[Rfam]
Nucleotides: 075
Base pairs, nucleotide, nucleotide: 007070008069009068010067011066012065013064015062016061017060020057021056022055023054025052027050028049
Number, partner (000 for none) and nucleotide at each position: 001000c002000a003000g004000a005000u006000g007070c008069u009068u010067u011066u012065u013064g014000g015062g016061g017060u018000a019000a020057g021056g022055g023054c024000u025052u026000u027050c028049u029000g030000a031000u032000a033000c034000g035000g036000a037000u038000u039000u040000u041000a042000u043000a044000g045000a046000c047000c048000c049028a050027g051000a052025a053000a054023g055022c056021c057020c058000a059000g060017a061016c062015c063000g064013c065012a066011a067010a068009a069008a070007g071000a072000u073000c074000u075000g

Shown here is a 75-nucleotide RNA from Microcaecilia unicolor, a member of the family "mir-129 microRNA precursor family". Its family is annotated with miRNA-mediated post-transcriptional gene silencing, gene silencing by miRNA and RISC complex in the Gene Ontology. The family's consensus secondary structure was predicted with RNAalifold. Taxonomically the source falls in Microcaecilia (Eukaryota, Sarcopterygii, Gymnophiona, Siphonopidae). The match comes from Rfam's covariance-model search (50 bits).